The record is an 81-nucleotide RNA sequence from Taxus chinensis, which matches "Small nucleolar RNA snoR14" in Rfam. The literature on the family includes a 2001 paper in RNA by Brown et al., "Multiple snoRNA gene clusters from Arabidopsis". The family's RNA type in Rfam is C/D-box small nucleolar RNA. The family is grouped with related families in Rfam's "SNORD110 clan". Its family is annotated with nucleolus and RNA processing in the Gene Ontology. NCBI's taxonomy places the organism under Eukaryota, Viridiplantae, Tracheophyta, Euphyllophyta, Taxus.
RNA sequence: UUGAUGUGAUGAUUAGUAGAAAUAUGUCAAUCCACUGAAAAUUUAUUGAUGUUAUUUUAUGUCCCAACAGGUUUUGAUUGA
Numbered sequence: 001u002u003g004a005u006g007u008g009a010u011g012a013u014u015a016g017u018a019g020a021a022a023u024a025u026g027u028c029a030a031u032c033c034a035c036u037g038a039a040a041a042u043u044u045a046u047u048g049a050u051g052u053u054a055u056u057u058u059a060u061g062u063c064c065c066a067a068c069a070g071g072u073u074u075u076g077a078u079u080g081a
Base pairs, nucleotide, nucleotide: 001081002080003079004078